[Rfam]
Nucleotides: 087
Stems, first nucleotide, its partner, number of pairs: 012037002017032002020029003040081004046076002048072003055066004
Number, partner (000 for none) and nucleotide at each position: 001000u002000a003000a004000u005000g006000a007000u008000a009000a010000a011000g012037g013036c014000a015000a016000a017032c018031u019000u020029u021028c022027c023000g024000a025000a026000a027022g028021g029020a030000u031018a032017g033000g034000a035000c036013g037012c038000a039000a040081a041080g042079c043078c044000g045000c046076g047075g048072g049071u050070c051000u052000a053000a054000c055066a056065u057064u058063c059000u060000u061000a062000u063058g064057a065056a066055u067000u068000a069000u070050g071049a072048c073000a074000g075047c076046c077000a078043g079042g080041u081040u082000g083000c084000c085000a086000a087000a